[Rfam]
U1 spliceosomal RNA: a 143-nucleotide RNA from Megalops atlanticus. The match comes from Rfam's covariance-model search (116 bits). From the family's description: U1 is a small nuclear RNA (snRNA) component of the spliceosome (involved in pre-mRNA splicing). Its 5' end forms complementary base pairs with the 5' splice junction, thus defining the 5' donor site of an intron. Pairs were carried over by alignment from the consensus structure, which is taken from published work.
RNA sequence: UUACUGACCUGGCCGGGGAGAUACCAUGAUCAAGAAGGUGGUUCACCCAGGGCGAGGCUCAGUCAUUGAACUCCGGCUGUGCUGACCCCUGCGACCCCUGCAUAAUUUCUGGUAGUGGGGGACUGCGUUCCCGCUCUCCCCUG
Numbered sequence: 001u002u003a004c005u006g007a008c009c010u011g012g013c014c015g016g017g018g019a020g021a022u023a024c025c026a027u028g029a030u031c032a033a034g035a036a037g038g039u040g041g042u043u044c045a046c047c048c049a050g051g052g053c054g055a056g057g058c059u060c061a062g063u064c065a066u067u068g069a070a071c072u073c074c075g076g077c078u079g080u081g082c083u084g085a086c087c088c089c090u091g092c093g094a095c096c097c098c099u100g101c102a103u104a105a106u107u108u109c110u111g112g113u114a115g116u117g118g119g120g121g122a123c124u125g126c127g128u129u130c131c132c133g134c135u136c137u138c139c140c141c142u143g
Stems, first nucleotide, its partner, number of pairs: 012101002015098001016048003020044002023042005049090004054086001056083003060079005117142006125134003